Small nucleolar RNA SNORD87: a 79-nucleotide RNA sequence from Prunella himalayana. Rfam classes the family as a C/D-box small nucleolar RNA. The organism belongs to Prunella, within Eukaryota. Rfam links the family to the GO terms RNA processing and nucleolus. The literature on the family includes a 2002 paper in Gene by Gogolevskaya et al., "U87 RNA, a novel C/D box small nucleolar RNA from mammalian cells".

[Rfam]
RNA sequence: UCUGGCAUAAUGAUGAGACUUUUGCCGUUUACCCAUCUGAAUGUUUUUUGAUGAGUAUCUUGAGAUCUGAAAUGCCAGU
Numbered sequence: 001u002c003u004g005g006c007a008u009a010a011u012g013a014u015g016a017g018a019c020u021u022u023u024g025c026c027g028u029u030u031a032c033c034c035a036u037c038u039g040a041a042u043g044u045u046u047u048u049u050g051a052u053g054a055g056u057a058u059c060u061u062g063a064g065a066u067c068u069g070a071a072a073u074g075c076c077a078g079u
Stems, first nucleotide, its partner, number of pairs: 002078006